[Rfam]
RNA sequence: CUUGGCGUUGGCUUUACGCGCCAUAAUGCCGUUACCCACCGCGUGCAACAGGUGGGUUUUACCCAGGCCGGUGCCGCCGUA
Numbered sequence: 001c002u003u004g005g006c007g008u009u010g011g012c013u014u015u016a017c018g019c020g021c022c023a024u025a026a027u028g029c030c031g032u033u034a035c036c037c038a039c040c041g042c043g044u045g046c047a048a049c050a051g052g053u054g055g056g057u058u059u060u061a062c063c064c065a066g067g068c069c070g071g072u073g074c075c076g077c078c079g080u081a
Stems, first nucleotide, its partner, number of pairs: 005042003009038003013034001016032003020029002051078004056074002061072003
Background: antisense RNA of dnaA mRNA: an 81-nucleotide RNA sequence from Gibbsiella quercinecans. Gene Ontology term of the family: regulation of mRNA stability. Lineage of the source: Bacteria > Pseudomonadati > Gammaproteobacteria > Yersiniaceae > Gibbsiella. A search with the family's covariance model found it, with a score of 87 bits.